[Rfam]
RNA sequence: UGAUUUCGUGGAGGCAGUGAUCCGCAGAUGAGAUCUCGGUCGCUUCACCCGGAAGGGGGUGUCUGCGGGGAGCCAGUAGCGAAACCGGCCACAGGGGCC
Number, nucleotide and partner (000 for none) at each position: 001u000002g098003a000004u096005u095006u094007c000008g092009u091010g090011g089012a000013g074014g073015c072016a000017g000018u000019g000020a000021u000022c068023c067024g066025c065026a064027g063028a062029u061030g000031a000032g000033a000034u000035c000036u000037c000038g086039g085040u082041c081042g080043c079044u078045u000046c000047a000048c000049c000050c000051g000052g000053a000054a000055g000056g000057g000058g000059g000060u000061g029062u028063c027064u026065g025066c024067g023068g022069g000070g000071a000072g015073c014074c013075a000076g000077u000078a044079g043080c042081g041082a040083a000084a000085c039086c038087g000088g000089c011090c010091a009092c008093a000094g006095g005096g004097g000098c002099c000